[Rfam]
RNA sequence: GGUAGUAGCAAAUACUCAAACGAGAACUUUGAGGACUGAAGUGGGGAAAGGUUCCGUGUGAACAGCAGUUGGACACGGGUCAGCCGAUCCUAAGGGGUAGGGGAGUUCCGACUCAACGUGCGCGCUCGCGCGCCGCCCCCCGAAAGGGAAGCCGGUUAACAUUCCGGCGCCCGGAUGCGGACUUUCAGCGGCAACGCAAACGAAGGCGGAGACGUCGGUGGGAGCCCCGGGAAGAGUUCUCUUUUCUUCUUAACAGCCAACGCACCCUGGAAUCGGUUUGUCCGGAGAUAGGGUGGCACGGCUGGAAGAGCCCCGCACUUUCGCGGGGUCCGGCGCGCUUCCAACGGCCCUUGAAAAUCCGCCGGAGUGAAUAAUUUUCGCGCCGGGUCGUACUCAUAACCGCAGCAGGUCUCCAAGGUGAACAGCCUCUAGUUGA
Numbered sequence: 001g002g003u004a005g006u007a008g009c010a011a012a013u014a015c016u017c018a019a020a021c022g023a024g025a026a027c028u029u030u031g032a033g034g035a036c037u038g039a040a041g042u043g044g045g046g047a048a049a050g051g052u053u054c055c056g057u058g059u060g061a062a063c064a065g066c067a068g069u070u071g072g073a074c075a076c077g078g079g080u081c082a083g084c085c086g087a088u089c090c091u092a093a094g095g096g097g098u099a100g101g102g103g104a105g106u107u108c109c110g111a112c113u114c115a116a117c118g119u120g121c122g123c124g125c126u127c128g129c130g131c132g133c134c135g136c137c138c139c140c141c142g143a144a145a146g147g148g149a150a151g152c153c154g155g156u157u158a159a160c161a162u163u164c165c166g167g168c169g170c171c172c173g174g175a176u177g178c179g180g181a182c183u184u185u186c187a188g189c190g191g192c193a194a195c196g197c198a199a200a201c202g203a204a205g206g207c208g209g210a211g212a213c214g215u216c217g218g219u220g221g222g223a224g225c226c227c228c229g230g231g232a233a234g235a236g237u238u239c240u241c242u243u244u245u246c247u248u249c250u251u252a253a254c255a256g257c258c259a260a261c262g263c264a265c266c267c268u269g270g271a272a273u274c275g276g277u278u279u280g281u282c283c284g285g286a287g288a289u290a291g292g293g294u295g296g297c298a299c300g301g302c303u304g305g306a307a308g309a310g311c312c313c314c315g316c317a318c319u320u321u322c323g324c325g326g327g328g329u330c331c332g333g334c335g336c337g338c339u340u341c342c343a344a345c346g347g348c349c350c351u352u353g354a355a356a357a358u359c360c361g362c363c364g365g366a367g368u369g370a371a372u373a374a375u376u377u378u379c380g381c382g383c384c385g386g387g388u389c390g391u392a393c394u395c396a397u398a399a400c401c402g403c404a405g406c407a408g409g410u411c412u413c414c415a416a417g418g419u420g421a422a423c424a425g426c427c428u429c430u431a432g433u434u435g436a
Stems, first nucleotide, its partner, number of pairs: 015033006034434004043414004049394002054078006063071002085390003089147002094141002096112001098110001100109003120133003151168005171386004176382005181376001188197003205363006214348004219343007227333003230250006254304005264294006273285004311328006400409002416428004